Background
Shown here is a 68-nucleotide sequence from Noviherbaspirillum denitrificans, a member of the family "Betaproteobacteria toxic small RNA".

[Rfam]
RNA sequence: UGUCUCCUCCACCCUCCUCCUUUGGUGUGGAUUCAAACCCGAUGCCUCGAAGCGUCGGGUUUUUUUUC
Numbered sequence: 001u002g003u004c005u006c007c008u009c010c011a012c013c014c015u016c017c018u019c020c021u022u023u024g025g026u027g028u029g030g031a032u033u034c035a036a037a038c039c040c041g042a043u044g045c046c047u048c049g050a051a052g053c054g055u056c057g058g059g060u061u062u063u064u065u066u067u068c
Stems, first nucleotide, its partner, number of pairs: 008031005013025002036061008
From the family's description: Overexpression in amino aid rich medium attenuates growth, suggesting role in repressing amino acid intake and metabolism.
Pairs were carried over by alignment from the consensus structure, which was predicted with WAR.
The family has 51 seed sequences and 951 matches in Rfam 15.1.